RNA sequence: UCAUAUAAGGUCAACUCCAAACAUUCAAAACGCAUUGUUGAAUGGAAUUAGGUAUUUUGAGUGUUUGGAAUUGAACUUGUAUGC
Numbered sequence: 001u002c003a004u005a006u007a008a009g010g011u012c013a014a015c016u017c018c019a020a021a022c023a024u025u026c027a028a029a030a031c032g033c034a035u036u037g038u039u040g041a042a043u044g045g046a047a048u049u050a051g052g053u054a055u056u057u058u059g060a061g062u063g064u065u066u067g068g069a070a071u072u073g074a075a076c077u078u079g080u081a082u083g084c
Stems, first nucleotide, its partner, number of pairs: 002083008011074004016069015031051001034048003038044001
Dot-bracket structure: .((((((((.((((.((((((((((((((((..(((.(.....).)))..)...))))))))))))))).)))).)))))))).
This 84-nucleotide RNA from Macaca mulatta belongs to the Rfam family "mir-3145 microRNA precursor family".
Taxonomically the source falls in Macaca (Eukaryota, Dipnotetrapodomorpha, Amniota, Primates).
Rfam's curators put it in the seed alignment.
Gene Ontology terms of the family: miRNA-mediated post-transcriptional gene silencing and RISC complex.